[Rfam]
Nucleotides: 134
Stems, first nucleotide, its partner, number of pairs: 004131003009126002017029003031114002033103002035049004044101002053078004083099005105117003
Number, partner (000 for none) and nucleotide at each position: 001000a002000c003000a004131c005130g006129u007000g008000c009126u010125c011000c012000g013000g014000g015000g016000u017029c018028g019027g020000u021000g022000a023000a024000a025000g026000u027019c028018c029017g030000a031114g032113c033103c034102g035049g036048c037047g038046g039000u040000g041000a042000c043000a044101g045100u046038c047037c048036g049035c050000g051000a052000c053078c054077c055076g056075u057000g058000a059000u060000c061000c062000c063000c064000g065000c066000g067000a068000g069000g070000g071000g072000u073000g074000a075056g076055c077054g078053g079000u080000u081000g082000a083099c084098c085097u086096g087095g088000u089000g090000g091000a092000a093000c094000u095087c096086c097085a098084g099083g100045a101044c102034c103033g104000a105117c106116g107115g108000u109000g110000a111000a112000a113032g114031u115107c116106c117105g118000g119000a120000u121000g122000g123000g124000a125010g126009g127000a128000g129006a130005c131004g132000c133000g134000u